[Rfam]
Nucleotides: 137
Stems, first nucleotide, its partner, number of pairs: 004067003008062001012058001026053004031048001036045003079130005087121001089119003093115002096112004
Number, partner (000 for none) and nucleotide at each position: 001000g002000c003000u004067g005066g006065g007000a008062c009000c010000a011000a012058c013000u014000g015000g016000g017000a018000c019000c020000a021000g022000u023000u024000g025000u026053g027052u028051g029050g030000u031048c032000a033000a034000a035000c036045g037044a038043a039000g040000u041000g042000u043038u044037u045036u046000u047000u048031g049000u050029c051028c052027a053026c054000u055000g056000u057000u058012g059000c060000c061000a062008g063000c064000u065006u066005c067004c068000u069000a070000g071000a072000g073000u074000g075000a076000a077000g078000u079130g080129g081128g082127g083126g084000u085000c086000u087121c088000u089119g090118u091117c092000u093115g094114c095000u096112c097111u098110a099109g100000g101000a102000g103000a104000g105000c106000c107000g108000g109099c110098u111097a112096g113000c114094g115093c116000a117091g118090a119089u120000c121087g122000u123000u124000c125000c126083c127082c128081u129080c130079c131000a132000g133000a134000c135000a136000u137000g
Shown here is a 137-nucleotide RNA sequence from Nothoprocta ornata, a member of the family "Small Cajal body specific RNA 3". scaRNAs are a specific class of small nuclear RNAs which localise to the Cajal bodies and guide the modification of RNA polymerase II transcribed spliceosomal RNAs U1, U2, U4, U5 and U12. Pairs were carried over by alignment from the consensus structure, which was predicted with RNAalifold.